[Rfam]
RNA sequence: GGGUGUUCGUCUCCGAUGAGAGAGGGCAGGGUUCAACACUGGUCGGGCCGCCAGUG
Numbered sequence: 001g002g003g004u005g006u007u008c009g010u011c012u013c014c015g016a017u018g019a020g021a022g023a024g025g026g027c028a029g030g031g032u033u034c035a036a037c038a039c040u041g042g043u044c045g046g047g048c049c050g051c052c053a054g055u056g
Base pairs, nucleotide, nucleotide: 005027006026007025008024010023011022012021037056038055039054040053041052042051043050
RNA: nhaA-I RNA
Organism: Acetobacteraceae bacterium AT-5844